[Rfam]
A member of the RNA family "RAGATH-18 RNA", 74 nucleotides long.
The family's RNA type in Rfam is small RNA.
The base pairs follow the family's consensus structure, which is taken from published work.
Actinobacteria, Firmicutes, Fusobacteria, Thermotogae (1 example).
RNA sequence: CUCUGGGAGAGUCAAACAAACUUGAUUAGCAGCUUAUUUUAUAAGUUGUGAAAGAGGACUCGAAGAAAGGAGAA
Numbered sequence: 001c002u003c004u005g006g007g008a009g010a011g012u013c014a015a016a017c018a019a020a021c022u023u024g025a026u027u028a029g030c031a032g033c034u035u036a037u038u039u040u041a042u043a044a045g046u047u048g049u050g051a052a053a054g055a056g057g058a059c060u061c062g063a064a065g066a067a068a069g070g071a072g073a074a
Base pairs, nucleotide, nucleotide: 001072002071003070004069009061010060011059012058013057021056022055023054029049030048031047034045035044